This 58-nucleotide RNA sequence from Erythrobacter sp. EC-HK427 belongs to the Rfam family "terC RNA".
It scores 62 bits against the family's covariance model.
The family has 129 seed sequences and 1,112 matches in Rfam 15.1.
Taxonomically the source falls in Erythrobacter (Bacteria, Pseudomonadota, Sphingomonadales, Erythrobacteraceae).
It is annotated as a cis-regulatory element.

RNA sequence: UUCGCGGACCGGGCCCCUCUGGCGUGCGUUUAGGCGUACGUGAUGUCGGACCGCAUCG
Dot-bracket structure: .....((.((((.........((((((((....))))))))....)))).))......